[Rfam]
RNA sequence: AUAUGUCAUUAAUCACCAUAUGUUUCUUCUAAAGCCAGUGGUGAGAAAUGACACCUUCAGAGACUAGAUCAUCUUUCAUUAUAUAUUUUAGGAGGAGAUGAAACACCUCUUCCAGAGGU
Dot-bracket structure: ....((((((..((((.....(((........))).....))))..))))))..............(.(((((...(.(..........).)....)))))..........).......
Numbered sequence: 001a002u003a004u005g006u007c008a009u010u011a012a013u014c015a016c017c018a019u020a021u022g023u024u025u026c027u028u029c030u031a032a033a034g035c036c037a038g039u040g041g042u043g044a045g046a047a048a049u050g051a052c053a054c055c056u057u058c059a060g061a062g063a064c065u066a067g068a069u070c071a072u073c074u075u076u077c078a079u080u081a082u083a084u085a086u087u088u089u090a091g092g093a094g095g096a097g098a099u100g101a102a103a104c105a106c107c108u109c110u111u112c113c114a115g116a117g118g119u
Stems, first nucleotide, its partner, number of pairs: 005052006013044004022035003067112001069101005077092001079090001
This 119-nucleotide sequence from Pedionomus torquatus belongs to the Rfam family "Small nucleolar RNA ACA64".
Rfam links the family to the GO terms RNA processing and nucleolus.
The match comes from Rfam's covariance-model search (36 bits).